[Rfam]
RNA: Potassium channel RNA editing signal
RNA sequence: GUUGGCUAUGGUGACAUGGUCCCCACCACGAUUGGCGGCAAGAUCGUUGGAUCCCUCUGUGCCAUCGCAGGUGUGCUGACCAUCGCCCUGCCCGUGCCCGUCAUCGUGUCCAAC
Numbered sequence: 001g002u003u004g005g006c007u008a009u010g011g012u013g014a015c016a017u018g019g020u021c022c023c024c025a026c027c028a029c030g031a032u033u034g035g036c037g038g039c040a041a042g043a044u045c046g047u048u049g050g051a052u053c054c055c056u057c058u059g060u061g062c063c064a065u066c067g068c069a070g071g072u073g074u075g076c077u078g079a080c081c082a083u084c085g086c087c088c089u090g091c092c093c094g095u096g097c098c099c100g101u102c103a104u105c106g107u108g109u110c111c112a113a114c
Stems, first nucleotide, its partner, number of pairs: 001114002004111002007108005013102003018097001021094001037077004049063002